[Rfam]
RNA: Purine riboswitch aptamer
RNA sequence: GAAAAGUUAGUAAAUAAUCUUCAUAUAUCCUCGAUAAUAAGGUUCGAGAGUCUCUACCGGAGCGCCGUAAAAGCUCUGACUAUGAAGGUGGGAAUCAAACAG
Number, nucleotide and partner (000 for none) at each position: 001g000002a000003a000004a000005a000006g000007u000008u000009a000010g000011u000012a000013a000014a000015u000016a000017a000018u088019c087020u086021u085022c084023a083024u082025a081026u000027a000028u000029c000030c048031u047032c046033g045034a044035u000036a000037a000038u000039a000040a000041g000042g000043u000044u034045c033046g032047a031048g030049a000050g000051u000052c000053u000054c000055u000056a000057c000058c078059g077060g076061a075062g074063c073064g000065c000066c000067g000068u000069a000070a000071a000072a000073g063074c062075u061076c060077u059078g058079a000080c000081u025082a024083u023084g022085a021086a020087g019088g018089u000090g000091g000092g000093a000094a000095u000096c000097a000098a000099a000100c000101a000102g000